[Rfam]
RNA sequence: GGAUCGGGAAGGUCGCCAUUCGGGAAGGCGGCCGCGGAUAGAUCCGGACCUGCUGUCUCGAAUGGUCAGAAGCGCCGGAGCCCGGCGGCGGUUCUG
Numbered sequence: 001g002g003a004u005c006g007g008g009a010a011g012g013u014c015g016c017c018a019u020u021c022g023g024g025a026a027g028g029c030g031g032c033c034g035c036g037g038a039u040a041g042a043u044c045c046g047g048a049c050c051u052g053c054u055g056u057c058u059c060g061a062a063u064g065g066u067c068a069g070a071a072g073c074g075c076c077g078g079a080g081c082c083c084g085g086c087g088g089c090g091g092u093u094c095u096g
Base pairs, nucleotide, nucleotide: 001045002044003043004042005041011033012032013031014030015029016028017027067096068095069094070093071092073090074089075088076087077086
RNA: Rhodo-rpoB RNA
Organism: Jhaorihella thermophila